[Rfam]
RNA sequence: UGGCCUGAAAUGAUGUUCUGAGUUCAUGUCUCUUCUCUGAGCUGUAUUCUGAAGACAGCCAGGUGCAUUUCUGAUCAGGCUU
Numbered sequence: 001u002g003g004c005c006u007g008a009a010a011u012g013a014u015g016u017u018c019u020g021a022g023u024u025c026a027u028g029u030c031u032c033u034u035c036u037c038u039g040a041g042c043u044g045u046a047u048u049c050u051g052a053a054g055a056c057a058g059c060c061a062g063g064u065g066c067a068u069u070u071c072u073g074a075u076c077a078g079g080c081u082u
Base pairs, nucleotide, nucleotide: 002081003080004079005078
RNA: Small nucleolar RNA SNORD111